Shown here is a 46-nucleotide sequence from Roseimaritima ulvae, a member of the family "Acido-Lenti-1 RNA". The match comes from Rfam's covariance-model search (50 bits). Taxonomically the source falls in Roseimaritima (Bacteria, Pseudomonadati, Planctomycetia, Pirellulales). Pairs were carried over by alignment from the consensus structure, which is taken from published work.
RNA sequence: CCACGGGCUCGCGCCCGUGGCUACAUCAUGCCGCCGCUUCGCGGCU
Numbered sequence: 001c002c003a004c005g006g007g008c009u010c011g012c013g014c015c016c017g018u019g020g021c022u023a024c025a026u027c028a029u030g031c032c033g034c035c036g037c038u039u040c041g042c043g044g045c046u
Stems, first nucleotide, its partner, number of pairs: 001020008033045005
Dot-bracket structure: ((((((((....))))))))............(((((...))))).